[Rfam]
RNA: Makes More Granules Regulator RNA (mmgR)
RNA sequence: UGCAUACGCCUCUUUGGGCGUUUCCUCCCUAGACUUCGGGCCGCCUUUCGGGGCGGCCUUUUUUUUGCACAAA
Numbered sequence: 001u002g003c004a005u006a007c008g009c010c011u012c013u014u015u016g017g018g019c020g021u022u023u024c025c026u027c028c029c030u031a032g033a034c035u036u037c038g039g040g041c042c043g044c045c046u047u048u049c050g051g052g053g054c055g056g057c058c059u060u061u062u063u064u065u066u067g068c069a070c071a072a073a
Stems, first nucleotide, its partner, number of pairs: 008019004039058008